Annotation
Shown here is a 102-nucleotide RNA from Marinospirillum celere, a member of the family "TPP riboswitch aptamer (THI element)". NCBI's taxonomy places the organism under Bacteria, Pseudomonadota, Oceanospirillales, Oceanospirillaceae, Marinospirillum. Rfam describes the family as follows. Vitamin B(1) in its active form thiamin pyrophosphate (TPP) is an essential coenzyme that is synthesised by coupling of pyrimidine and thiazole moieties in bacteria.
[Rfam]
RNA sequence: GACAUCUUGACGGGGUGCCCAGGCUGACAAGCCCAGGCUGAGAUAAUACCCGUUGAACCUGAACCGGUUAGCACCGGCGUAGGAAUCGAGAUACCUGCACUG
Number, nucleotide and partner (000 for none) at each position: 001g000002a000003c000004a000005u000006c090007u089008u088009g087010a086011c052012g051013g050014g049015g000016u046017g038018c037019c036020c000021a000022g000023g000024c000025u000026g000027a000028c000029a000030a000031g000032c000033c000034c000035a000036g019037g018038c017039u000040g000041a000042g000043a000044u000045a000046a016047u000048a000049c014050c013051c012052g011053u000054u000055g000056a000057a000058c083059c082060u081061g080062a000063a000064c077065c076066g075067g074068u000069u000070a000071g000072c000073a000074c067075c066076g065077g064078c000079g000080u061081a060082g059083g058084a000085a000086u010087c009088g008089a007090g006091a000092u000093a000094c000095c000096u000097g000098c000099a000100c000101u000102g000